Rfam assigns this 97-nucleotide RNA sequence from Silvimonas terrae to the family "TPP riboswitch aptamer (THI element)". A search with the family's covariance model found it, with a score of 69 bits. Taxonomically the source falls in Silvimonas (Bacteria, Pseudomonadota, Betaproteobacteria, Neisseriales).
RNA sequence: GAGUUUCGCUAGGGGUUCCGUACGUUCGUGCGGAUGAGAGAGUCCCUUUGCACCUGAUCCGGUUCACACCGGCGUAGGGAAGCGAAGCCGCCGUUGC
Numbered sequence: 001g002a003g004u005u006u007c008g009c010u011a012g013g014g015g016u017u018c019c020g021u022a023c024g025u026u027c028g029u030g031c032g033g034a035u036g037a038g039a040g041a042g043u044c045c046c047u048u049u050g051c052a053c054c055u056g057a058u059c060c061g062g063u064u065c066a067c068a069c070c071g072g073c074g075u076a077g078g079g080a081a082g083c084g085a086a087g088c089c090g091c092c093g094u095u096g097c
Base pairs, nucleotide, nucleotide: 006085007084008083009082010081011047012046013045014044016041017034018033019032020031021030053078054077055076056075059072060071061070062069